[Rfam]
RNA sequence: UUAAUAAACUGAAUAAAAUUCCGUAUAACUCCAAUAAUAUGGUUUGGAGGUCUCUACCAGGAACCCAAAUUCCUGAUUACGAAGAAAGUACAAGACUUG
Numbered sequence: 001u002u003a004a005u006a007a008a009c010u011g012a013a014u015a016a017a018a019u020u021c022c023g024u025a026u027a028a029c030u031c032c033a034a035u036a037a038u039a040u041g042g043u044u045u046g047g048a049g050g051u052c053u054c055u056a057c058c059a060g061g062a063a064c065c066c067a068a069a070u071u072c073c074u075g076a077u078u079a080c081g082a083a084g085a086a087a088g089u090a091c092a093a094g095a096c097u098u099g
Base pairs, nucleotide, nucleotide: 019084020083022081023080024079025078029049030048031047032046033045034044058075059074060073061072062071063070
The family of this 99-nucleotide sequence from Paraliobacillus quinghaiensis is "Purine riboswitch aptamer".
Riboswitches are metabolite binding domains within certain messenger RNAs that serve as precision sensors for their corresponding targets.